Source information: Acido-Lenti-1 RNA: a 46-nucleotide RNA sequence from Sporomusaceae bacterium FL31. The organism belongs to Sporomusaceae, within Bacteria. The family has 87 seed sequences and 2,607 matches in Rfam 15.1. By type it is a small RNA. It scores 46 bits against the family's covariance model. The base pairs follow the family's consensus structure, which is taken from published work.
RNA sequence: CAUAGGAAUAAAUUCCUAUGCUCUGUUAAAUCGUCCCUUCGGGACU
Number, nucleotide and partner (000 for none) at each position: 001c020002a019003u018004a017005g016006g015007a014008a013009u000010a000011a000012a000013u008014u007015c006016c005017u004018a003019u002020g001021c000022u000023c000024u000025g000026u000027u000028a000029a000030a000031u000032c000033g045034u044035c043036c042037c041038u000039u000040c000041g037042g036043g035044a034045c033046u000